[Rfam]
RNA sequence: UGGUUGGCAGAACACCAAGGCGUCGCUGCUCCGGGUUUGGAGUGCUAAAUCUGCUU
Numbered sequence: 001u002g003g004u005u006g007g008c009a010g011a012a013c014a015c016c017a018a019g020g021c022g023u024c025g026c027u028g029c030u031c032c033g034g035g036u037u038u039g040g041a042g043u044g045c046u047a048a049a050u051c052u053g054c055u056u
Stems, first nucleotide, its partner, number of pairs: 001017004029042004
RNA: COG3860 RNA
Organism: Maritalea myrionectae